[Rfam]
Nucleotides: 082
Stems, first nucleotide, its partner, number of pairs: 005023006046076006
Number, partner (000 for none) and nucleotide at each position: 001000c002000a003000u004000a005023u006022g007021g008020g009019g010018u011000u012000g013000c014000g015000a016000u017000c018010a019009c020008c021007c022006c023005a024000c025000g026000a027000g028000g029000c030000g031000a032000c033000a034000u035000g036000c037000c038000g039000a040000a041000g042000a043000a044000u045000c046076g047075c048074g049073u050072c051071c052000a053000u054000g055000a056000a057000a058000c059000c060000g061000a062000a063000c064000a065000a066000c067000g068000g069000a070000g071051g072050g073049a074048c075047g076046c077000g078000u079000c080000a081000u082000g

Annotation: The record is an 82-nucleotide RNA sequence from Rhizobium sp. BK275, which matches "chrB-a RNA" in Rfam. Taxonomically the source falls in Rhizobium (Bacteria, Pseudomonadati, Pseudomonadota, Rhizobiaceae).